[Rfam]
RNA sequence: UCUGGGCGGGGUAGCGUCCGCUUGUAACCCAAUCGCGGGGGAAGGAGGGUGAGGAUGUGGGGCGCCGGGUAAGGGCCUGCGGAGGCGUGUGGAGGGCCUGCCCACUCCAAGCACGGAGUCGCUAGCGGGAUCUCGCCGGAGGGUGGGGUUGCGCGGGCGAUAGUGAGGGGGGCACCGCGUCAGGCGGGCAACCGAGCAGCGUUCACUCCCCGCUCUGUGUAGUGGAGGGAUAACGGGUCUGAAUGUUCUGCGCAGAUCACCCUGUCCGGCAUGCAUCCACAUACCAUCUUCCGU
Number, nucleotide and partner (000 for none) at each position: 001u042002c041003u040004g023005g022006g021007c020008g019009g018010g017011g000012u000013a000014g000015c000016g000017u010018c009019c008020g007021c006022u005023u004024g000025u000026a000027a000028c039029c038030c037031a000032a000033u000034c000035g000036c000037g030038g029039g028040g003041g002042a001043a000044g292045g291046a290047g289048g288049g287050u286051g285052a000053g000054g000055a282056u281057g280058u279059g278060g277061g276062g272063c000064g270065c269066c268067g267068g266069g265070u264071a000072a263073g262074g261075g260076c000077c000078u252079g251080c250081g249082g248083a000084g247085g246086c245087g244088u243089g000090u241091g000092g000093a000094g240095g239096g238097c237098c236099u235100g234101c000102c229103c228104a000105c227106u226107c225108c224109a223110a000111g220112c219113a218114c217115g216116g215117a214118g213119u212120c159121g158122c157123u156124a000125g154126c153127g152128g000129g150130a149131u148132c147133u146134c145135g144136c143137c142138g000139g000140a000141g000142g137143g136144u135145g134146g133147g132148g131149u130150u129151g000152c127153g126154c125155g000156g123157g122158c121159g120160a164161u000162a000163g000164u160165g000166a000167g210168g209169g208170g207171g206172g000173c000174a000175c000176c000177g202178c201179g200180u199181c000182a000183g000184g000185c194186g193187g192188g000189c000190a000191a000192c187193c186194g185195a000196g000197c000198a000199g180200c179201g178202u177203u000204c000205a000206c171207u170208c169209c168210c167211c000212g119213c118214u117215c116216u115217g114218u113219g112220u111221a000222g000223u109224g108225g107226a106227g105228g103229g102230a000231u000232a000233a000234c100235g099236g098237g097238u096239c095240u094241g090242a000243a088244u087245g086246u085247u084248c082249u081250g080251c079252g078253c000254a000255g000256a000257u000258c000259a000260c075261c074262c073263u072264g070265u069266c068267c067268g066269g065270c064271a000272u062273g000274c000275a000276u061277c060278c059279a058280c057281a056282u055283a000284c000285c051286a050287u049288c048289u047290u046291c045292c044293g000294u000

This 294-nucleotide RNA from Physcomitrium patens belongs to the Rfam family "Metazoan signal recognition particle RNA". The signal recognition particle (SRP) is a universally conserved ribonucleoprotein. It is involved in the co-translational targeting of proteins to membranes. The eukaryotic SRP consists of a 300-nucleotide 7S RNA and six proteins: SRPs 72, 68, 54, 19, 14, and 9. Archaeal SRP consists of a 7S RNA and homologues of the eukaryotic SRP19 and SRP54 proteins. Eukaryotic and archaeal 7S RNAs have very similar secondary structures, as represented by this family. Eight helical elements fold into the Alu and S domains, separated by a long linker region. The Alu domain is thought to mediate the peptide chain elongation retardation function of the SRP. The universally conserved helix which interacts with the SRP54 M domain mediates signal sequence recognition. In eukaryotes and archaea, the SRP19-helix 6 complex is thought to be involved in SRP assembly and stabilises helix 8 for SRP54 binding. The Signal Recognition Particle Database (SRPDB) provides compilations of SRP components, with phylogenetic data and structural illustrations. Many sequences below the threshold for this family are clearly closely related, but are most likely to be SRP RNA derived pseudogenes. The human genome in particular is known to contain a large amount of SRP RNA related sequence, including Alu repeats. While the threshold of this family is set high so as to minimise the number of hits to such regions, it is likely that some remain. The family has 91 seed sequences and 383,523 matches in Rfam 15.1. Rfam classes the family as a non-coding RNA gene. On this family, see Rosenblad et al., Nucleic Acids Res 2003: "SRPDB: Signal Recognition Particle Database". The organism belongs to Physcomitrium, within Eukaryota.